A member of the RNA family "R2 RNA element" from Agrilus planipennis, 182 nucleotides long. The organism belongs to Agrilus, within Eukaryota. Pairs were carried over by alignment from the consensus structure, which is taken from published work. The match comes from Rfam's covariance-model search (38 bits).
Nucleotides: 182
Stems, first nucleotide, its partner, number of pairs: 037059005066181005090176005096169002105131005115122002134152006
Number, partner (000 for none) and nucleotide at each position: 001000a002000c003000u004000u005000a006000u007000u008000c009000a010000u011000u012000g013000a014000a015000c016000g017000c018000u019000g020000u021000u022000u023000g024000a025000u026000g027000g028000a029000a030000g031000c032000a033000g034000g035000g036000a037059c038058u039057u040056a041055u042000a043000g044000u045000a046000a047000g048000a049000u050000c051000a052000u053000u054000a055041a056040u057039g058038g059037g060000a061000a062000u063000u064000a065000c066181a067180g068179c069178u070177u071000u072000c073000g074000g075000g076000u077000u078000g079000a080000a081000a082000u083000c084000c085000c086000a087000u088000c089000u090176c091175g092174a093173g094172g095000a096169g097168g098000a099000g100000u101000u102000u103000u104000a105131g106130u107129c108128g109127g110000u111000a112000g113000g114000c115122g116121c117000u118000a119000c120000g121116g122115c123000u124000a125000u126000u127109c128108c129107g130106a131105c132000a133000a134152u135151a136150c137149c138148c139147c140000c141000c142000u143000u144000c145000a146000g147139g148138g149137g150136g151135u152134g153000u154000c155000u156000u157000u158000u159000g160000a161000a162000g163000a164000u165000u166000u167000c168097c169096c170000c171000u172094c173093c174092u175091c176090g177070a178069g179068g180067c181066u182000a
Rfam links the family to the GO term regulation of reverse transcription. Rfam describes the family as follows. This family represents the 3' UTR region of the R2 retrotransposable element. This family is known to interact with the R2-encoded reverse transcriptase in a reaction known as target primed reverse transcription (TPRT).